Rfam assigns this 100-nucleotide RNA from Allobosea sp. Root483D1 to the family "Glycine riboswitch aptamer". Its Rfam clan is "Glycine riboswitch clan".
RNA sequence: CUCUGGAAAGUGGCGGGCCUUUGAGGUUCGCCCACCGACGGGGGUAACUCGCUCAAGGCUUUAAGCCCGGCGGGGAAAUCUCUCAGGUCCCGAGACAGAG
Numbered sequence: 001c002u003c004u005g006g007a008a009a010g011u012g013g014c015g016g017g018c019c020u021u022u023g024a025g026g027u028u029c030g031c032c033c034a035c036c037g038a039c040g041g042g043g044g045u046a047a048c049u050c051g052c053u054c055a056a057g058g059c060u061u062u063a064a065g066c067c068c069g070g071c072g073g074g075g076a077a078a079u080c081u082c083u084c085a086g087g088u089c090c091c092g093a094g095a096c097a098g099a100g
Stems, first nucleotide, its partner, number of pairs: 001100005012032006034088003037084002041082003048075002
About the family: This family represents the bacterial glycine riboswitch. A reference for the family is Mandal et al. (2004), "A glycine-dependent riboswitch that uses cooperative binding to control gene expression", Science. A search with the family's covariance model found it, with a score of 38 bits.